RNA sequence: CUUUAUCCAGUAGGAAUUGAACCUACGAAUUUGCCAAUUAUGAGUUAGGCGCUUUAACCUUUCAACCAUGGAUGC
Numbered sequence: 001c002u003u004u005a006u007c008c009a010g011u012a013g014g015a016a017u018u019g020a021a022c023c024u025a026c027g028a029a030u031u032u033g034c035c036a037a038u039u040a041u042g043a044g045u046u047a048g049g050c051g052c053u054u055u056a057a058c059c060u061u062u063c064a065a066c067c068a069u070g071g072a073u074g075c
Stems, first nucleotide, its partner, number of pairs: 004074005010026005040069003044066003048062002051059001
The family of this 75-nucleotide RNA sequence from Gossypium gossypioides is "Plastid-ycf2 5UTR RNA". Rfam 15.1 lists 3,521 matches to the family in 417 species. By type it is a cis-regulatory element. Taxonomically the source falls in Gossypium (Eukaryota, Spermatophyta, Pentapetalae, Malvoideae).